Annotation: A member of the RNA family "FMN riboswitch aptamer (RFN element)" from a Candidatus Krumholzibacteriia bacterium, 120 nucleotides long.
[Rfam]
RNA sequence: GGAAACCUUCGGGGCGGGGUGAAAGUCCCCACCGGCGGUAUAGCCCGCGAGCGGAUUCAUCCGCACGAUCCGGUGAGAUUCCGGAGCCGACAGUCACAGUCUGGAUGGGAGAAGGUAGCC
Dot-bracket structure: ....((((((......(((.......))).[[((((((....[[))))..(((........)))....(((((.......)))))]])).(((.....]]))).......))))))....
Description
The match comes from Rfam's covariance-model search (108 bits). The base pairs follow the family's consensus structure, which is taken from published work.